[Rfam]
The family of this 210-nucleotide sequence from Arachis hypogaea is "Plant small nucleolar RNA U3". The base pairs follow the family's consensus structure, which is taken from published work. Small nucleolar RNAs (snoRNAs) are involved in the processing and modification of rRNA in the nucleolus. There are two main classes of snoRNAs: the box C/D class, and the box H/ACA class. U3 snoRNA is a member of the box C/D class. Indeed, the box C/D element is a subset of the six short sequence elements found in all U3 snoRNAs, namely boxes A, A', B, C, C', and D. The U3 snoRNA secondary structure is characterised by a small 5' domain (with boxes A and A'), and a larger 3' domain (with boxes B, C, C', and D), the two domains being linked by a single-stranded hinge.
RNA sequence: ACCACCCUACUUGAACAGGAACUGUUUUAUAGGCUCAUAUAUCUGUAUCCUUUAAGUUCUAAGGGGACAGGAACCAAAGUUGGUGGAUAAACUAUAACAGUGAGAUCAGAGCGUAAUUAAUAGUUCAGAGGCGCAUGCCAUCUGAACAGCAAAGGAUCAUUCUCGCCACAAUCUUGUGGUCGUGAUAGUCGCAUAUUGUUCUGACAAACU
Numbered sequence: 001a002c003c004a005c006c007c008u009a010c011u012u013g014a015a016c017a018g019g020a021a022c023u024g025u026u027u028u029a030u031a032g033g034c035u036c037a038u039a040u041a042u043c044u045g046u047a048u049c050c051u052u053u054a055a056g057u058u059c060u061a062a063g064g065g066g067a068c069a070g071g072a073a074c075c076a077a078a079g080u081u082g083g084u085g086g087a088u089a090a091a092c093u094a095u096a097a098c099a100g101u102g103a104g105a106u107c108a109g110a111g112c113g114u115a116a117u118u119a120a121u122a123g124u125u126c127a128g129a130g131g132c133g134c135a136u137g138c139c140a141u142c143u144g145a146a147c148a149g150c151a152a153a154g155g156a157u158c159a160u161u162c163u164c165g166c167c168a169c170a171a172u173c174u175u176g177u178g179g180u181c182g183u184g185a186u187a188g189u190c191g192c193a194u195a196u197u198g199u200u201c202u203g204a205c206a207a208a209c210u
Base pairs, nucleotide, nucleotide: 001038005033006032013027014026015025016024017023018022043070044069045068046067048065049064050063051062052061079209080208081206082205097197100194101193102192104190105189106188108186110161111160113158121149123147124146125145126144127143128142129141130139131138132137165183166182168180169179171177172176
NCBI's taxonomy places the organism under Eukaryota, Spermatophyta, Fabales, Dalbergieae, Arachis.
The family's RNA type in Rfam is C/D-box small nucleolar RNA.